The record is a 78-nucleotide RNA from Parambassis ranga, which matches "mir-458 microRNA precursor family" in Rfam. Gene Ontology terms of the family: RISC complex and miRNA-mediated post-transcriptional gene silencing. The organism belongs to Parambassis, within Eukaryota.

[Rfam]
RNA sequence: UUGCAGAUUGCAGCGCCAUUUUCAGAGCUAUAAGUGUGAUCAUUGUCAUAGCUCUUUAAAUGGUACUGCUGUAUGCAU
Numbered sequence: 001u002u003g004c005a006g007a008u009u010g011c012a013g014c015g016c017c018a019u020u021u022u023c024a025g026a027g028c029u030a031u032a033a034g035u036g037u038g039a040u041c042a043u044u045g046u047c048a049u050a051g052c053u054c055u056u057u058a059a060a061u062g063g064u065a066c067u068g069c070u071g072u073a074u075g076c077a078u
Stems, first nucleotide, its partner, number of pairs: 002077003007072002011068003015064007024055008

It scores 91 bits against the family's covariance model. The family's consensus secondary structure was predicted with RNAalifold.